[Rfam]
RNA sequence: UUUGAGGGGAAUGUUGUCUGGCUCGGGGGCGCCGCUCUUUCGCUGACCUGCUGCCCCUUCGAAUCCAUCUCGCUCUUCCUCUCUCUCUCUCUCUCUCUCUCGGAGAUCGAGGAGAUCGAUGGGCAGGAGCUAGCGAGAGGAGAUGGGUGUGGAUCUCGGACCAGGCUUCAUUCCCCCCAAG
Number, nucleotide and partner (000 for none) at each position: 001u181002u180003u179004g178005a000006g176007g175008g174009g173010a172011a171012u170013g169014u000015u000016g166017u165018c164019u163020g162021g161022c000023u000024c158025g157026g156027g155028g154029g000030c000031g000032c000033c000034g000035c000036u000037c000038u000039u000040u000041c000042g000043c000044u000045g000046a000047c000048c000049u000050g000051c000052u000053g000054c000055c000056c000057c000058u000059u000060c000061g000062a000063a000064u000065c000066c000067a000068u000069c000070u000071c000072g000073c000074u000075c000076u000077u000078c000079c000080u000081c000082u000083c000084u000085c000086u000087c000088u000089c000090u000091c000092u000093c000094u000095c000096u000097c000098u000099c000100u000101c000102g000103g000104a000105g000106a000107u000108c000109g000110a000111g000112g000113a000114g000115a000116u000117c000118g000119a000120u000121g000122g000123g000124c000125a000126g000127g000128a000129g000130c000131u000132a000133g000134c000135g000136a000137g000138a000139g000140g000141a000142g000143a000144u000145g000146g000147g000148u000149g000150u000151g000152g000153a000154u028155c027156u026157c025158g024159g000160a000161c021162c020163a019164g018165g017166c016167u000168u000169c013170a012171u011172u010173c009174c008175c007176c006177c000178c004179a003180a002181g001
RNA: mir-166 microRNA precursor family